[Rfam]
RNA sequence: ACCCCAUCCCGAGCGGCCGAGAGAUCUGGCUCUUUGACGCCGCAGCAACCACCUCAUUCGAGGCCGGUGCUACCGCCAGGACCGAUGGAGA
Numbered sequence: 001a002c003c004c005c006a007u008c009c010c011g012a013g014c015g016g017c018c019g020a021g022a023g024a025u026c027u028g029g030c031u032c033u034u035u036g037a038c039g040c041c042g043c044a045g046c047a048a049c050c051a052c053c054u055c056a057u058u059c060g061a062g063g064c065c066g067g068u069g070c071u072a073c074c075g076c077c078a079g080g081a082c083c084g085a086u087g088g089a090g091a
Stems, first nucleotide, its partner, number of pairs: 002090001004088005013043005021032003026079004044071004049067002052063004075083001